Plastid-rpl16 group II-D1 intron: a 41-nucleotide RNA sequence from Salix brachista. The match comes from Rfam's covariance-model search (50 bits). From the family's description: Plastid-rpl16 is a non-coding RNA (ncRNA) recognised in plastids. Taxonomically the source falls in Salix (Eukaryota, Streptophytina, eudicotyledons, Saliceae). On this family, see Richter et al., Plant Commun 2023: "Retrograde signaling in plants: A critical review focusing on the GUN pathway and beyond".
Nucleotides: 041
Stems, first nucleotide, its partner, number of pairs: 002034001004032003008028004
Number, partner (000 for none) and nucleotide at each position: 001000c002034u003000c004032g005031a006030g007000c008028c009027a010026a011025u012000a013000a014000a015000g016000a017000c018000u019000a020000a021000g022000a023000a024000c025011a026010u027009u028008g029000a030006c031005u032004c033000a034002a035000a036000a037000a038000u039000a040000a041000a